[Rfam]
RNA sequence: CCCUCCUACAAAGGCAUGUCCUUUGUUCCGUCUUUGGACAUGUAAGAACUGGAGGCAAAGAAUGAGGAUUUGGAGAGAUCUCUGCUGGCUUGCUCCCUGCAGGCUCAAGAUCAACUGUCCCACAUGA
Numbered sequence: 001c002c003c004u005c006c007u008a009c010a011a012a013g014g015c016a017u018g019u020c021c022u023u024u025g026u027u028c029c030g031u032c033u034u035u036g037g038a039c040a041u042g043u044a045a046g047a048a049c050u051g052g053a054g055g056c057a058a059a060g061a062a063u064g065a066g067g068a069u070u071u072g073g074a075g076a077g078a079u080c081u082c083u084g085c086u087g088g089c090u091u092g093c094u095c096c097c098u099g100c101a102g103g104c105u106c107a108a109g110a111u112c113a114a115c116u117g118u119c120c121c122a123c124a125u126g127a
Stems, first nucleotide, its partner, number of pairs: 002055005015042007024030002066120003070117001087105007
A member of the RNA family "Small nucleolar RNA SNORA38" from Cavia porcellus, 127 nucleotides long. ACA38 is a member of the H/ACA class of snoRNA that guide the sites of modification of uridines to pseudouridines. It scores 123 bits against the family's covariance model. Rfam 15.1 lists 628 matches to the family in 149 species.